[Rfam]
RNA: msiK RNA
Organism: Streptomyces armeniacus
RNA sequence: GGACUAGACCCUUUACUACGGAUCGUCCGGCACGUACCUGCCGGUGAAGGAGACAACA
Numbered sequence: 001g002g003a004c005u006a007g008a009c010c011c012u013u014u015a016c017u018a019c020g021g022a023u024c025g026u027c028c029g030g031c032a033c034g035u036a037c038c039u040g041c042c043g044g045u046g047a048a049g050g051a052g053a054c055a056a057c058a
Stems, first nucleotide, its partner, number of pairs: 009050002012048004027044006